[Rfam]
RNA sequence: AUGAAUAUAUAUUGGCAUGAAUCCAUCCAUGGGUCUUGAAAAAGCAUGGCAAUUGGAGAGAGGAAUUCUUCACCCUCCUCCAAAUUCAUACAGUUUGCUUGUGCUUUAGCCAUCCGCUCUGCUAAUCACCACCGCGGCGCAUGAAGAAGCUUCACCAAAUCUAGCAGAGGUACCGGCUAAUGCCUAGCAAACCGGCAAGUCACAGAACGGCAAUGGACUCGGUUUCCCGAGUCC
Number, nucleotide and partner (000 for none) at each position: 001a000002u000003g000004a000005a000006u000007a000008u000009a000010u000011a000012u000013u000014g000015g000016c000017a000018u000019g000020a000021a000022u000023c000024c000025a000026u000027c000028c000029a000030u000031g000032g000033g000034u000035c000036u000037u000038g000039a000040a000041a000042a000043a000044g000045c000046a000047u000048g000049g000050c000051a000052a000053u000054u000055g081056g080057a079058g000059a000060g000061a000062g000063g000064a000065a000066u000067u000068c000069u000070u000071c000072a000073c000074c000075c000076u000077c000078c000079u057080c056081c055082a000083a000084a000085u000086u000087c000088a000089u000090a000091c000092a000093g192094u191095u190096u189097g188098c187099u000100u000101g000102u000103g000104c000105u000106u000107u000108a000109g000110c000111c182112a181113u180114c000115c000116g000117c000118u000119c000120u000121g000122c000123u000124a000125a000126u000127c000128a000129c000130c000131a000132c000133c000134g000135c000136g000137g000138c000139g000140c000141a000142u000143g000144a000145a000146g000147a000148a000149g000150c000151u000152u000153c000154a000155c000156c000157a000158a000159a000160u000161c000162u000163a000164g000165c000166a000167g000168a000169g000170g000171u000172a000173c000174c000175g000176g000177c000178u000179a000180a113181u112182g111183c000184c000185u000186a000187g098188c097189a096190a095191a094192c093193c000194g000195g000196c000197a000198a000199g000200u000201c000202a000203c000204a000205g000206a000207a000208c000209g000210g000211c000212a000213a000214u000215g000216g233217a232218c231219u230220c229221g000222g000223u000224u000225u000226c000227c000228c000229g220230a219231g218232u217233c216234c000
Shown here is a 234-nucleotide RNA sequence from Nyssa sinensis, a member of the family "Early nodulin 40". The literature on the family includes a 2007 paper in Nucleic Acids Res by Gultyaev and Roussis, "Identification of conserved secondary structures and expansion segments in enod40 RNAs reveals new enod40 homologues in plants". Rfam links the family to the GO term nodulation. It scores 145 bits against the family's covariance model. Pairs were carried over by alignment from the consensus structure, which is taken from published work.